The record is an 83-nucleotide RNA from Anaerocolumna chitinilytica, which matches "c-di-GMP-I riboswitch aptamer" in Rfam. Pairs were carried over by alignment from the consensus structure, which is taken from published work. The source organism's lineage runs through Bacteria, Bacillati, Clostridia, Lachnospiraceae and Anaerocolumna. The match comes from Rfam's covariance-model search (84 bits).
RNA sequence: GCAAGAUAAAGGCAAACCUGUCGAAAGGCAGGGACGCAAAGCCACGGGCCUAAAGCAGAUGCAAAGGUAGCCGGGUUACCAGG
Numbered sequence: 001g002c003a004a005g006a007u008a009a010a011g012g013c014a015a016a017c018c019u020g021u022c023g024a025a026a027g028g029c030a031g032g033g034a035c036g037c038a039a040a041g042c043c044a045c046g047g048g049c050c051u052a053a054a055g056c057a058g059a060u061g062c063a064a065a066g067g068u069a070g071c072c073g074g075g076u077u078a079c080c081a082g083g
Base pairs, nucleotide, nucleotide: 012037013036017032018031019030020029021028022027040077041076042075043074045073046072047071048068049067050066055062056061